ZMP/ZTP riboswitch aptamer (pfl RNA motif): an 84-nucleotide RNA from Coriobacteriales bacterium OH1046. NCBI's taxonomy places the organism under Bacteria, Bacillati, Actinomycetota, Coriobacteriia, Coriobacteriales. The match comes from Rfam's covariance-model search (58 bits).
[Rfam]
RNA sequence: CAGACGCGCUGUGACUGACGGAGAUUCGCGGGCAACCGCGGUGGAGCAGCGCGUUACCUACCGCCGACCGUCUGGGCAAGCCAU
Numbered sequence: 001c002a003g004a005c006g007c008g009c010u011g012u013g014a015c016u017g018a019c020g021g022a023g024a025u026u027c028g029c030g031g032g033c034a035a036c037c038g039c040g041g042u043g044g045a046g047c048a049g050c051g052c053g054u055u056a057c058c059u060a061c062c063g064c065c066g067a068c069c070g071u072c073u074g075g076g077c078a079a080g081c082c083a084u
Base pairs, nucleotide, nucleotide: 003055004054005053006052007051008050009049010048011047012046015043017072018071019070020069021068028039029038030037031036063077064076065075